[Rfam]
RNA sequence: ACUACAAACCGUGCUAUCGUUUCGCUGACUUGUUCAGUGGGAAGGAAAGUCCGGACAGCGCAGAGCAACGCACCACCUAACGGGUGGGUCCCGGUGCAAACCGGGAACAGCAAGUGCCACAGAAAAUAACCGUCUGCUUCGGCAGAUAAGGGUGAAAAUGUGGGGUAAGAGCCCACGGUGCAGGCAGGUAACUGUUUGUGCGGGUAAACCUUGCGUGCUGAAAUGCCAUGUAUACGGUCGAUUGAGGGCUGCUCGCCCGAUGACCGAGGGUAGGCAGAUACAGACAACGUGCGAACGUUGUCGCAGAUAAAUGAUAGCAAUCUGUCCCGGCUUGCCGGGGCAGAAACAGAAUCCGGCUUACAGGUUUGUAGUUUUU
Number, nucleotide and partner (000 for none) at each position: 001a372002c371003u370004a369005c368006a367007a366008a365009c364010c363011g361012u319013g318014c317015u316016a315017u314018c313019g000020u042021u041022u040023c039024g038025c037026u036027g035028a034029c000030u000031u000032g000033u000034u028035c027036a026037g025038u024039g023040g022041g021042a020043a000044g000045g000046a000047a359048a358049g357050u000051c356052c355053g354054g353055a352056c220057a219058g218059c217060g000061c000062a000063g254064a253065g252066c251067a000068a216069c215070g214071c213072a212073c087074c086075a085076c084077c083078u000079a000080a000081c000082g000083g077084g076085u075086g074087g073088g108089u106090c105091c104092c103093g102094g101095u100096g000097c000098a000099a000100a095101c094102c093103g092104g091105g090106a089107a000108c088109a211110g210111c000112a000113a000114g209115u208116g205117c204118c203119a000120c000121a000122g000123a000124a000125a000126a000127u000128a000129a000130c151131c150132g147133u146134c145135u144136g143137c142138u000139u000140c000141g000142g137143c136144a135145g134146a133147u132148a000149a000150g131151g130152g000153u000154g000155a000156a000157a000158a000159u177160g176161u175162g174163g173164g172165g000166u000167a000168a000169g000170a000171g000172c164173c163174c162175a161176c160177g159178g000179u000180g199181c198182a197183g196184g195185c194186a193187g192188g000189u000190a000191a000192c187193u186194g185195u184196u183197u182198g181199u180200g000201c000202g000203g118204g117205u116206a000207a000208a115209c114210c110211u109212u072213g071214c070215g069216u068217g059218c058219u057220g056221a000222a000223a000224u276225g275226c274227c273228a000229u000230g000231u000232a000233u000234a000235c266236g265237g264238u263239c262240g000241a000242u000243u000244g000245a000246g258247g257248g256249c255250u000251g066252c065253u064254c063255g249256c248257c247258c246259g000260a000261u000262g239263a238264c237265c236266g235267a000268g000269g000270g000271u000272a000273g227274g226275c225276a224277g000278a000279u000280a000281c000282a000283g302284a301285c300286a299287a298288c297289g296290u295291g000292c000293g000294a000295a290296c289297g288298u287299u286300g285301u284302c283303g000304c000305a000306g000307a000308u000309a000310a000311a000312u000313g018314a017315u016316a015317g014318c013319a012320a000321u000322c000323u000324g000325u000326c000327c000328c000329g000330g000331c000332u000333u000334g000335c000336c000337g000338g000339g000340g000341c000342a000343g000344a000345a000346a000347c000348a000349g000350a000351a000352u055353c054354c053355g052356g051357c049358u048359u047360a000361c011362a000363g010364g009365u008366u007367u006368g005369u004370a003371g002372u001373u000374u000375u000376u000